[Rfam]
RNA sequence: UUUUAUUAGCGGGGGGACGCAUCGGCGUUGAGAAGGUUAAAACCUGACCCUUAGAACCUGUUCAGUUAAUACUGGCGUAGGGAGCAAUGAGUAGGACGCU
Numbered sequence: 001u002u003u004u005a006u007u008a009g010c011g012g013g014g015g016g017a018c019g020c021a022u023c024g025g026c027g028u029u030g031a032g033a034a035g036g037u038u039a040a041a042a043c044c045u046g047a048c049c050c051u052u053a054g055a056a057c058c059u060g061u062u063c064a065g066u067u068a069a070u071a072c073u074g075g076c077g078u079a080g081g082g083a084g085c086a087a088u089g090a091g092u093a094g095g096a097c098g099c100u
Stems, first nucleotide, its partner, number of pairs: 007087001009085002011051004016045001017028004035044003057081004062075004
Rfam assigns this 100-nucleotide sequence from Solibacillus sp. R5-41 to the family "TPP riboswitch aptamer (THI element)". Taxonomically the source falls in Solibacillus (Bacteria, Bacillati, Caryophanales, Caryophanaceae). For this family Rfam cites "A conserved RNA structure (thi box) is involved in regulation of thiamin biosynthetic gene expression in bacteria" (Miranda-Rios et al., Proc Natl Acad Sci U S A, 2001).